[Rfam]
The family of this 357-nucleotide sequence from Exophiala sideris is "A. fumigatus sRNA Afu_309". It is annotated as a small RNA. For this family Rfam cites "Small ncRNA transcriptome analysis from Aspergillus fumigatus suggests a novel mechanism for regulation of protein synthesis" (Jochl et al., Nucleic Acids Res, 2008). It scores 75 bits against the family's covariance model.

RNA sequence: CUUUUCCUUUCAACUACAGUUCUGUGUCACAACGAUCCCUUCCUCUUGUUAUCCUUCGGGACGACAGGAAGUGCGAGGUUGAUUGUUGCGACGCUCUUCGACUAUUCCAGCGGAGCCAUUAUCUCACCCCCAUUAAUGUCUAACCCAGUCGACAGAACUGAGAUCAACCCGAGACCUUUUCGCGCCUUUCGGGGCAAGGUUCAUCUUGAGCUCGUCCUGAGACCGCCUUCGGGCGCAAACGGGGCUGAAUUCGGUGAGCCGAAAACGGUGUGUAGGGAGACGUCUUAUUCCCAAGCUUGGUGUUGAUCCUCGUCGAGGAAUGAUCACUGAGCAAAACCAAGACUAUUGUCUACAUUC
Numbered sequence: 001c002u003u004u005u006c007c008u009u010u011c012a013a014c015u016a017c018a019g020u021u022c023u024g025u026g027u028c029a030c031a032a033c034g035a036u037c038c039c040u041u042c043c044u045c046u047u048g049u050u051a052u053c054c055u056u057c058g059g060g061a062c063g064a065c066a067g068g069a070a071g072u073g074c075g076a077g078g079u080u081g082a083u084u085g086u087u088g089c090g091a092c093g094c095u096c097u098u099c100g101a102c103u104a105u106u107c108c109a110g111c112g113g114a115g116c117c118a119u120u121a122u123c124u125c126a127c128c129c130c131c132a133u134u135a136a137u138g139u140c141u142a143a144c145c146c147a148g149u150c151g152a153c154a155g156a157a158c159u160g161a162g163a164u165c166a167a168c169c170c171g172a173g174a175c176c177u178u179u180u181c182g183c184g185c186c187u188u189u190c191g192g193g194g195c196a197a198g199g200u201u202c203a204u205c206u207u208g209a210g211c212u213c214g215u216c217c218u219g220a221g222a223c224c225g226c227c228u229u230c231g232g233g234c235g236c237a238a239a240c241g242g243g244g245c246u247g248a249a250u251u252c253g254g255u256g257a258g259c260c261g262a263a264a265a266c267g268g269u270g271u272g273u274a275g276g277g278a279g280a281c282g283u284c285u286u287a288u289u290c291c292c293a294a295g296c297u298u299g300g301u302g303u304u305g306a307u308c309c310u311c312g313u314c315g316a317g318g319a320a321u322g323a324u325c326a327c328u329g330a331g332c333a334a335a336a337c338c339a340a341g342a343c344u345a346u347u348g349u350c351u352a353c354a355u356u357c
Stems, first nucleotide, its partner, number of pairs: 018159008026092003030088003034084004038078004042073001043071002045068006052061003099151005109141001112140002115137001179274001187264006202256004208252003212248002214245006279350003282343005295332008308318004